RNA sequence: UCUCUCUGCCGUGUGACUGGCGUUUCCUCCCUAAACUCGGGCCGCACCCAGCGGGUGCGGCCCUUUUUUUGUCUACA
Numbered sequence: 001u002c003u004c005u006c007u008g009c010c011g012u013g014u015g016a017c018u019g020g021c022g023u024u025u026c027c028u029c030c031c032u033a034a035a036c037u038c039g040g041g042c043c044g045c046a047c048c049c050a051g052c053g054g055g056u057g058c059g060g061c062c063c064u065u066u067u068u069u070u071g072u073c074u075a076c077a
Base pairs, nucleotide, nucleotide: 008021009020010019040062041061042060043059044058045057046056047055048054

Background
Shown here is a 77-nucleotide RNA from Dankookia rubra, a member of the family "Makes More Granules Regulator RNA (mmgR)".